A member of the RNA family "Manganese Mn2+ riboswitch aptamer (yybP-ykoY)" from Clostridium sp. BL8, 92 nucleotides long.
RNA sequence: AACUUCGUUAAAAGGGAGUAGCUGCCUUGUAAAAGGUGAUAAAGUCAACAUACUGACCUUUGGUCUGGCUUUAUCGUAACUAAUCUUAGUUA
Numbered sequence: 001a002a003c004u005u006c007g008u009u010a011a012a013a014g015g016g017a018g019u020a021g022c023u024g025c026c027u028u029g030u031a032a033a034a035g036g037u038g039a040u041a042a043a044g045u046c047a048a049c050a051u052a053c054u055g056a057c058c059u060u061u062g063g064u065c066u067g068g069c070u071u072u073a074u075c076g077u078a079a080c081u082a083a084u085c086u087u088a089g090u091u092a
Base pairs, nucleotide, nucleotide: 025036026035027034038075039074040073041072042071043070044069045068046067047066055065056064057063058062077092078091079090080089081088082087